[Rfam]
Shown here is an 86-nucleotide sequence from Salvia splendens, a member of the family "Small nucleolar RNA snoR27". The match comes from Rfam's covariance-model search (61 bits). The family's consensus secondary structure was predicted with WAR. The family has 6 seed sequences and 649 matches in Rfam 15.1. The family is grouped with related families in Rfam's "snR68 clan".

RNA sequence: UUUGGAUCAGUGAUGUUGUAUAUUACUGCGUUAUCUAUCUGCAAUGAAUUCUUUUUUUGAAGAUAUCUUAUUAUCUGAGAUCCAAU
Numbered sequence: 001u002u003u004g005g006a007u008c009a010g011u012g013a014u015g016u017u018g019u020a021u022a023u024u025a026c027u028g029c030g031u032u033a034u035c036u037a038u039c040u041g042c043a044a045u046g047a048a049u050u051c052u053u054u055u056u057u058u059g060a061a062g063a064u065a066u067c068u069u070a071u072u073a074u075c076u077g078a079g080a081u082c083c084a085a086u
Base pairs, nucleotide, nucleotide: 002085003084004083005082006081007080